This 65-nucleotide RNA sequence belongs to the Rfam family "Cyano-1 RNA".
RNA sequence: UGUCGUGUGAGGAAAAACGCCUCACGGGGUGGAAACAAGGUCACACUCCCGAGAAGCGUUUUGAA
Numbered sequence: 001u002g003u004c005g006u007g008u009g010a011g012g013a014a015a016a017a018c019g020c021c022u023c024a025c026g027g028g029g030u031g032g033a034a035a036c037a038a039g040g041u042c043a044c045a046c047u048c049c050c051g052a053g054a055a056g057c058g059u060u061u062u063g064a065a
Stems, first nucleotide, its partner, number of pairs: 015061006022054001026050003029046003
It is annotated as a small RNA. Rfam's curators put it in the seed alignment.